[Rfam]
RNA sequence: CAAGCCAGAAGAGGCGCGUUGCUCAGGUAGCGUAUCAGAGGAGCCGGUUUCCAUUGACGAUACGCGAGGGGGUGUGACGCCGAGGCGCAGCAGCCCACCGGAGAAACUGCUACGUCGGCUACAAGGGCUGAAUCCCUUGGGCUGUCACCUCGAUUCUCUGUAUUCCGGGGGAUCGGCAAGGUGAGGCGCUUCUGGGUGU
Numbered sequence: 001c002a003a004g005c006c007a008g009a010a011g012a013g014g015c016g017c018g019u020u021g022c023u024c025a026g027g028u029a030g031c032g033u034a035u036c037a038g039a040g041g042a043g044c045c046g047g048u049u050u051c052c053a054u055u056g057a058c059g060a061u062a063c064g065c066g067a068g069g070g071g072g073u074g075u076g077a078c079g080c081c082g083a084g085g086c087g088c089a090g091c092a093g094c095c096c097a098c099c100g101g102a103g104a105a106a107c108u109g110c111u112a113c114g115u116c117g118g119c120u121a122c123a124a125g126g127g128c129u130g131a132a133u134c135c136c137u138u139g140g141g142c143u144g145u146c147a148c149c150u151c152g153a154u155u156c157u158c159u160g161u162a163u164u165c166c167g168g169g170g171g172a173u174c175g176g177c178a179a180g181g182u183g184a185g186g187c188g189c190u191u192c193u194g195g196g197u198g199u
Base pairs, nucleotide, nucleotide: 006194007193008192009191010190011189016080017079018078019077020076021075022074024072030065031064032063033062034061035060036059084116085115086114087113089111090110091109092108093107117143118142119141120140122139123138124137125136126135127134145184146183147182148181149180150179

Lysine riboswitch aptamer: a 199-nucleotide RNA from Hafnia alvei. The organism belongs to Hafnia alvei, within Bacteria. Riboswitches are metabolite binding domains within certain messenger RNAs that serve as precision sensors for their corresponding targets. Allosteric rearrangement of mRNA structure is mediated by ligand binding, and this results in modulation of gene expression. This family includes riboswitches that sense lysine in a number of genes involved in lysine metabolism, including lysC. The match comes from Rfam's covariance-model search (97 bits).